The family of this 106-nucleotide RNA from Phytophthora rubi is "Small nucleolar RNA snR60/Z15/Z230/Z193/J17". Rfam links the family to the GO terms nucleolus and RNA processing. Clan: SNORD77 clan. For this family Rfam cites "The high diversity of snoRNAs in plants: identification and comparative study of 120 snoRNA genes from Oryza sativa" (Chen et al., Nucleic Acids Res, 2003). Rfam classes the family as a C/D-box small nucleolar RNA.
RNA sequence: GUUGAGGAGGUGAUGAUUCAAUAAUGCAUAGUUCAACUGAACAAGCCCCCAAGGCUUCUGUUGAGAACAUUCCAUCAAAGUCUUUCGCUCCUAUCUGAUUCUCAAC
Numbered sequence: 001g002u003u004g005a006g007g008a009g010g011u012g013a014u015g016a017u018u019c020a021a022u023a024a025u026g027c028a029u030a031g032u033u034c035a036a037c038u039g040a041a042c043a044a045g046c047c048c049c050c051a052a053g054g055c056u057u058c059u060g061u062u063g064a065g066a067a068c069a070u071u072c073c074a075u076c077a078a079a080g081u082c083u084u085u086c087g088c089u090c091c092u093a094u095c096u097g098a099u100u101c102u103c104a105a106c
Stems, first nucleotide, its partner, number of pairs: 004103005